[Rfam]
Description
mir-395 microRNA precursor family: a 130-nucleotide RNA sequence from Amphiprion percula. A reference for the family is Jones-Rhoades and Bartel (2004), "Computational Identification of Plant MicroRNAs and Their Targets, Including a Stress-Induced miRNA", Mol Cell. Gene Ontology terms of the family: miRNA-mediated post-transcriptional gene silencing and RISC complex. mir-395 was identified in both Arabidopsis thaliana and Oryza sativa computationally and was later experimentally verified. mir-395 is thought to target mRNAs coding for ATP sulphurylases. The mature sequence is excised from the 3' arm of the hairpin.

RNA sequence: AUUAGUUCUGCAGCCCUCUGAAGCCCUUCAAUUGAAAUGAAAAUUUAACGUUAAAUUAUAUUUUCGUUAUAUAAUGUUAACAUUAAAUUUUCAUUUCAAUUGAAGGGCUUCAGAGGGCUGCAGAACUAAU
Numbered sequence: 001a002u003u004a005g006u007u008c009u010g011c012a013g014c015c016c017u018c019u020g021a022a023g024c025c026c027u028u029c030a031a032u033u034g035a036a037a038u039g040a041a042a043a044u045u046u047a048a049c050g051u052u053a054a055a056u057u058a059u060a061u062u063u064u065c066g067u068u069a070u071a072u073a074a075u076g077u078u079a080a081c082a083u084u085a086a087a088u089u090u091u092c093a094u095u096u097c098a099a100u101u102g103a104a105g106g107g108c109u110u111c112a113g114a115g116g117g118c119u120g121c122a123g124a125a126c127u128a129a130u
Base pairs, nucleotide, nucleotide: 005126006125007124008123009122011120012119013118014117015116016115017114018113019112020111021110022109023108024107025106026105027104028103029102030101031100032099033098034097035096036095037094038093039092040091041090042089043088044087045086046085047084048083